[Rfam]
RNA sequence: CUCCAAUCUAUAACGAUAUCCGAGAAACCUCCUAACCUCCCAACCACCCACCACAUCCACCAUGUCUCCCUGCUCCUGCAACUGCUGCCCCGGAGAAUGCAACUCUUGCUCUUGCAACUCCUGCACGGUCAGUUUAGCC
Numbered sequence: 001c002u003c004c005a006a007u008c009u010a011u012a013a014c015g016a017u018a019u020c021c022g023a024g025a026a027a028c029c030u031c032c033u034a035a036c037c038u039c040c041c042a043a044c045c046a047c048c049c050a051c052c053a054c055a056u057c058c059a060c061c062a063u064g065u066c067u068c069c070c071u072g073c074u075c076c077u078g079c080a081a082c083u084g085c086u087g088c089c090c091c092g093g094a095g096a097a098u099g100c101a102a103c104u105c106u107u108g109c110u111c112u113u114g115c116a117a118c119u120c121c122u123g124c125a126c127g128g129u130c131a132g133u134u135u136a137g138c139c
Stems, first nucleotide, its partner, number of pairs: 071095001073093002078088003099124003108115002

Rfam assigns this 139-nucleotide RNA sequence from Aspergillus candidus to the family "A. fumigatus sRNA Afu_254". Lineage of the source: Eukaryota > Opisthokonta > Pezizomycotina > Eurotiales > Aspergillus subgen. Circumdati.